[Rfam]
RNA sequence: GGUCCUUGCGAUGUCCGGGUCCGCCGCAUCUCCCGGGCGCGCGAGGAAGGCCGGUCGGCACGUGGUUAGGAGUGGCCUCCUCUGUUACGCCGCGAAUUCCGAUUGGCCGCCGU
Numbered sequence: 001g002g003u004c005c006u007u008g009c010g011a012u013g014u015c016c017g018g019g020u021c022c023g024c025c026g027c028a029u030c031u032c033c034c035g036g037g038c039g040c041g042c043g044a045g046g047a048a049g050g051c052c053g054g055u056c057g058g059c060a061c062g063u064g065g066u067u068a069g070g071a072g073u074g075g076c077c078u079c080c081u082c083u084g085u086u087a088c089g090c091c092g093c094g095a096a097u098u099c100c101g102a103u104u105g106g107c108c109g110c111c112g113u
Stems, first nucleotide, its partner, number of pairs: 003047008014037006049108010
RNA: EcpR1
Organism: Tepidicaulis marinus